Description
The family of this 126-nucleotide sequence from Amphimedon queenslandica is "U4atac minor spliceosomal RNA". U4atac is an essential component of the minor U12-type spliceosome complex which is required for removal of the rarer class of eukaryotic introns (AT-AC, U12-type). Gene Ontology terms of the family: pre-mRNA 5'-splice site binding, mRNA 5'-splice site recognition and U4atac snRNP. A search with the family's covariance model found it, with a score of 68 bits.
RNA sequence: AACGUCCUUAUCUGAGGGUAGCACAACAUGUCAAUGAUCGUGAGUGAGAUAUGUUCUGCUGACACCAUUACUACAACACAAUGAUUCGUUUGGCACUUUGUGUUAAACGUCUCAAUUUUUGGGGGU
Numbered sequence: 001a002a003c004g005u006c007c008u009u010a011u012c013u014g015a016g017g018g019u020a021g022c023a024c025a026a027c028a029u030g031u032c033a034a035u036g037a038u039c040g041u042g043a044g045u046g047a048g049a050u051a052u053g054u055u056c057u058g059c060u061g062a063c064a065c066c067a068u069u070a071c072u073a074c075a076a077c078a079c080a081a082u083g084a085u086u087c088g089u090u091u092g093g094c095a096c097u098u099u100g101u102g103u104u105a106a107a108c109g110u111c112u113c114a115a116u117u118u119u120u121g122g123g124g125g126u
Base pairs, nucleotide, nucleotide: 006018007017008016009015021059022058023057026054027053028052029051030050031049032048039044083113084112087109088108091105092104093103094102095101096100